[Rfam]
RNA sequence: UUUGGAUCGAUGAUGUGCUGAUUUUAAACUGCGUUAUCUUUCUGUAUGUGCCUCAUUGAGGCCUGAAGAAAGCUUUAUCUUAUAACUGAGAUCCAAA
Numbered sequence: 001u002u003u004g005g006a007u008c009g010a011u012g013a014u015g016u017g018c019u020g021a022u023u024u025u026a027a028a029c030u031g032c033g034u035u036a037u038c039u040u041u042c043u044g045u046a047u048g049u050g051c052c053u054c055a056u057u058g059a060g061g062c063c064u065g066a067a068g069a070a071a072g073c074u075u076u077a078u079c080u081u082a083u084a085a086c087u088g089a090g091a092u093c094c095a096a097a
Stems, first nucleotide, its partner, number of pairs: 001097007
RNA: Small nucleolar RNA snoR27
Organism: Camphora micrantha